[Rfam]
Background: The family of this 176-nucleotide RNA from Oryza barthii is "MIR807 microRNA precursor family".
RNA sequence: AACCACACUAUUGAUGAAUGGAUUCACUCAUGAGAUGACGUGGUUGUUCCAUCUAGGAUGAGGACGUGGCAUCCUAUUAAUUUUGUUCGAUGGCUGGUAAUAUGAUGUCAUGUCCUUGUCCUAGGUGAAGCAACCAUGUCAUUUCGCAGGUGAAUCCAUUUAUCGAUAGUGUGGUU
Numbered sequence: 001a002a003c004c005a006c007a008c009u010a011u012u013g014a015u016g017a018a019u020g021g022a023u024u025c026a027c028u029c030a031u032g033a034g035a036u037g038a039c040g041u042g043g044u045u046g047u048u049c050c051a052u053c054u055a056g057g058a059u060g061a062g063g064a065c066g067u068g069g070c071a072u073c074c075u076a077u078u079a080a081u082u083u084u085g086u087u088c089g090a091u092g093g094c095u096g097g098u099a100a101u102a103u104g105a106u107g108u109c110a111u112g113u114c115c116u117u118g119u120c121c122u123a124g125g126u127g128a129a130g131c132a133a134c135c136a137u138g139u140c141a142u143u144u145c146g147c148a149g150g151u152g153a154a155u156c157c158a159u160u161u162a163u164c165g166a167u168a169g170u171g172u173g174g175u176u
Base pairs, nucleotide, nucleotide: 001176002175003174004173005172006171007170009168010167011166012165013164014163015162017160018159019158021156022155023154024153025152026151027150028149031146032145033144035142036141037140038139039138041136042135043134044133045132046131047130048129051126052125054123055122057120058119063114064113065112069108070107071106072105073104075102076101077100078099079098086097087096